[Rfam]
Nucleotides: 085
Stems, first nucleotide, its partner, number of pairs: 001077009011045004017039001026035003047062005
Number, partner (000 for none) and nucleotide at each position: 001077g002076g003075c004074g005073g006072g007071a008070u009069g010000g011045g012044g013043c014042a015000g016000c017039a018000a019000u020000a021000c022000a023000a024000g025000a026035c027034c028033c029000g030000u031000a032000a033028g034027g035026g036000a037000a038000a039017u040000a041000c042014u043013g044012u045011c046000c047062g048061c049060c050059g051058u052000c053000g054000u055000a056000u057000u058051a059050c060049g061048g062047u063000u064000u065000u066000g067000a068000a069009c070008a071007u072006c073005c074004u075003g076002c077001c078000c079000a080000c081000c082000u083000c084000g085000c